[Rfam]
RNA: Mammalian CPEB3 ribozyme
Organism: Chelonia mydas
RNA sequence: AGACCAGGCUGAGGGCCAUAUCAAAAGCCUUCAUGUGGCAGUCCUGGUCAGCCUUAAAGGUUGCAAAUCCUGCU
Numbered sequence: 001a002g003a004c005c006a007g008g009c010u011g012a013g014g015g016c017c018a019u020a021u022c023a024a025a026a027g028c029c030u031u032c033a034u035g036u037g038g039c040a041g042u043c044c045u046g047g048u049c050a051g052c053c054u055u056a057a058a059g060g061u062u063g064c065a066a067a068u069c070c071u072g073c074u
Stems, first nucleotide, its partner, number of pairs: 012045005020074001022072002026068001027039003049063006